[Rfam]
RNA sequence: CUUCACGAGACGCGGCGCCAAGCUCCGACUGGCCGCGCACCAACCCCAGGUUCAUGGGUGGUUCGGAUGAAGAAGCGGUCCGGGCAUCGACCGAUGCGCGGGCAAGAGCUCAGC
Numbered sequence: 001c002u003u004c005a006c007g008a009g010a011c012g013c014g015g016c017g018c019c020a021a022g023c024u025c026c027g028a029c030u031g032g033c034c035g036c037g038c039a040c041c042a043a044c045c046c047c048a049g050g051u052u053c054a055u056g057g058g059u060g061g062u063u064c065g066g067a068u069g070a071a072g073a074a075g076c077g078g079u080c081c082g083g084g085c086a087u088c089g090a091c092c093g094a095u096g097c098g099c100g101g102g103c104a105a106g107a108g109c110u111c112a113g114c
Stems, first nucleotide, its partner, number of pairs: 001075004009038001011037006021030002039062003044058003078103005084097004
Record summary: The family of this 114-nucleotide sequence from Glutamicibacter uratoxydans is "SAM (S-adenosyl methionine) riboswitch aptamer". A search with the family's covariance model found it, with a score of 76 bits. Its family is annotated with S-adenosylmethionine metabolic process and regulation of gene expression in the Gene Ontology. Rfam describes the family as follows. SAM-IV is a mRNA element that regulates gene expression via direct sensing of S-adenosylmethionine (SAM or AdoMet). SAM-IV riboswitches share conserved nucleotide positions with the previously described SAM-I riboswitches sequence analysis and molecular recognition experiments suggest that SAM-I and SAM-IV riboswitches share similar ligand binding sites, but have different scaffolds. The source organism's lineage runs through Bacteria, Bacillati, Actinomycetes, Micrococcales and Glutamicibacter.